The family of this 98-nucleotide sequence from Marisma mosquito virus is "Insect-specific Flavivirus 3' UTR cis-acting replication element (CRE)". Its family is annotated with viral RNA genome replication in the Gene Ontology. Flavi_ISFV_CRE is a Insect specific Flavivirus family. Flavivirus 3' UTR cis-acting replication element (CRE) plays a crucial role in the virus replication and is thought to be needed for the formation of a 'replication complex', it is composed of a small hairpin (sHP) and a larger structural element (3'SL). It has been shown that mutations in sHP are lethal for viruses. Pairs were carried over by alignment from the consensus structure, which was predicted with LocARNA.
Nucleotides: 098
Stems, first nucleotide, its partner, number of pairs: 016097004021092001023090002026087002029084002031081002037077001038075006048060003
Number, partner (000 for none) and nucleotide at each position: 001000u002000a003000g004000g005000a006000a007000a008000g009000a010000c011000u012000g013000g014000a015000g016097a017096u018095a019094c020000c021092u022000u023090u024089g025000g026087u027086u028000c029084u030083u031081c032080g033000a034000c035000a036000u037077u038075a039074a040073c041072u042071c043070c044000a045000a046000u047000c048060g049059g050058c051000a052000c053000a054000g055000a056000g057000c058050g059049c060048c061000g062000u063000g064000g065000g066000a067000a068000a069000c070043g071042g072041a073040g074039u075038u076000a077037a078000u079000a080032u081031g082000g083030a084029a085000a086027a087026a088000a089024c090023a091000u092021a093000a094019g095018u096017a097016u098000c